[Rfam]
RNA sequence: CUGCGCUCUCCAGCUCCAUGCAAGCAACUUUACUUGAUGUGGCGUUACAAAGAGCGGAAAUUAGUGGCCGUUAAAACACUUGAAGCGUACUUAUUACGUUUCGACCACCUGAACUGUCUCACAUUU
Numbered sequence: 001c002u003g004c005g006c007u008c009u010c011c012a013g014c015u016c017c018a019u020g021c022a023a024g025c026a027a028c029u030u031u032a033c034u035u036g037a038u039g040u041g042g043c044g045u046u047a048c049a050a051a052g053a054g055c056g057g058a059a060a061u062u063a064g065u066g067g068c069c070g071u072u073a074a075a076a077c078a079c080u081u082g083a084a085g086c087g088u089a090c091u092u093a094u095u096a097c098g099u100u101u102c103g104a105c106c107a108c109c110u111g112a113a114c115u116g117u118c119u120c121a122c123a124u125u126u
Stems, first nucleotide, its partner, number of pairs: 004056005012046003016042005023034002080104003084100006
This 126-nucleotide sequence from Caenorhabditis auriculariae belongs to the Rfam family "Nematode snoRNA ceN36-1". Rfam links the family to the GO terms RNA processing and nucleolus. It scores 54 bits against the family's covariance model. Taxonomically the source falls in Caenorhabditis (Eukaryota, Metazoa, Ecdysozoa, Chromadorea). Rfam classes the family as an H/ACA-box small nucleolar RNA.